[Rfam]
This 46-nucleotide sequence from Nocardia carnea belongs to the Rfam family "L31-Actinobacteria ribosomal protein leader".
RNA sequence: UCGGUUCCGGUUCACGUUCGGCAAAUAUACGAGCGACCCGGCGACC
Numbered sequence: 001u002c003g004g005u006u007c008c009g010g011u012u013c014a015c016g017u018u019c020g021g022c023a024a025a026u027a028u029a030c031g032a033g034c035g036a037c038c039c040g041g042c043g044a045c046c
Stems, first nucleotide, its partner, number of pairs: 003046003007041004015035006
The family's consensus secondary structure is taken from published work.